[Rfam]
RNA sequence: GGGUCAAUGAUGACCCCUCAACUUGUCUUGAAGAGAUAUGGUGAUGUAAAAAUCAGGCUCAAUAGCAUUACCCUGAGGCCC
Numbered sequence: 001g002g003g004u005c006a007a008u009g010a011u012g013a014c015c016c017c018u019c020a021a022c023u024u025g026u027c028u029u030g031a032a033g034a035g036a037u038a039u040g041g042u043g044a045u046g047u048a049a050a051a052a053u054c055a056g057g058c059u060c061a062a063u064a065g066c067a068u069u070a071c072c073c074u075g076a077g078g079c080c081c
Stems, first nucleotide, its partner, number of pairs: 001081004005075002009071001

Notes: Small nucleolar RNA SNORD115: an 81-nucleotide sequence from Orycteropus afer. A reference for the family is Cavaille et al. (2000), "Identification of brain-specific and imprinted small nucleolar RNA genes exhibiting an unusual genomic organization", Proc Natl Acad Sci U S A. The family's consensus secondary structure was predicted with PFOLD. Taxonomically the source falls in Orycteropus afer (Eukaryota, Theria, Afrotheria, Orycteropus). Its family is annotated with RNA processing and nucleolus in the Gene Ontology.